The family of this 47-nucleotide sequence from Paraburkholderia monticola is "Guanidine-II riboswitch aptamer (mini-ykkC)". Gene Ontology term of the family: regulation of gene expression. The family's consensus secondary structure is taken from published work. Rfam describes the family as follows. Simpler in structure and has fewer highly conserved nucleotide positions than the ykkC-yxkD leader. Despite this each of its two stem-loop structures directly bind free guanidine. Therefore, mini-ykkC RNA motif represents a distinct class of guanidine-sensing RNAs. Its crystal structure was also determined. Taxonomically the source falls in Paraburkholderia (Bacteria, Betaproteobacteria, Burkholderiales, Burkholderiaceae).
Nucleotides: 047
Base pairs, nucleotide, nucleotide: 003018004017005016006015007014008013035046036045037044038043
Number, partner (000 for none) and nucleotide at each position: 001000a002000g003018g004017u005016a006015a007014g008013g009000a010000c011000g012000a013008c014007c015006u016005u017004a018003c019000g020000c021000u022000u023000c024000u025000a026000u027000c028000g029000a030000u031000c032000a033000u034000c035046g036045g037044g038043g039000a040000c041000g042000g043038c044037c045036c046035c047000a